[Rfam]
RNA sequence: CGGCGGGGACGGCCCCGCCUGUGCCGCACCGAGCGGGGACGGCCCCG
Dot-bracket structure: .(((((((....)))))))..............(((((....)))))
RNA: Guanidine-II riboswitch aptamer (mini-ykkC)
Organism: Helcobacillus massiliensis